[Rfam]
RNA: mir-71 microRNA precursor family
Nucleotides: 071
Base pairs, nucleotide, nucleotide: 008063009062010061011060012059013058014057015056017055018054019053021051022050023049024048025047027045028044029043
Number, partner (000 for none) and nucleotide at each position: 001000u002000g003000g004000c005000g006000g007000u008063g009062a010061a011060a012059g013058a014057c015056a016000u017055g018054g019053g020000u021051a022050g023049u024048g025047a026000g027045a028044c029043g030000u031000g032000u033000g034000c035000u036000c037000u038000g039000c040000g041000a042000u043029c044028g045027u046000g047025u048024c049023a050022c051021u052000a053019u054018u055017c056015u057014g058013u059012u060011u061010u062009u063008c064000g065000c066000c067000g068000c069000c070000c071000g